[Rfam]
RNA sequence: CUCUUAUCGAGAGCGGUGGAGGGACUGGCCCUGUGAAACCGCGGCAACCGGAAAAGAGAGUCUUUUCGUCAAGGUGCCAAUCCCAGCCCUUUGAAGCGUAAGGGAAGGAUGAGAG
Numbered sequence: 001c002u003c004u005u006a007u008c009g010a011g012a013g014c015g016g017u018g019g020a021g022g023g024a025c026u027g028g029c030c031c032u033g034u035g036a037a038a039c040c041g042c043g044g045c046a047a048c049c050g051g052a053a054a055a056g057a058g059a060g061u062c063u064u065u066u067c068g069u070c071a072a073g074g075u076g077c078c079a080a081u082c083c084c085a086g087c088c089c090u091u092u093g094a095a096g097c098g099u100a101a102g103g104g105a106a107g108g109a110u111g112a113g114a115g
Base pairs, nucleotide, nucleotide: 001115002114003113004112005111006110007109008108013042014041015040016039017038021031022030023029025086026085027084028083043078044077045076046075048074049073050070051069082107087104088103089102090101091100
Rfam assigns this 115-nucleotide RNA sequence from Candidatus Methylacidiphilum infernorum to the family "SAM riboswitch aptamer (S box leader)".
The base pairs follow the family's consensus structure, which is taken from published work.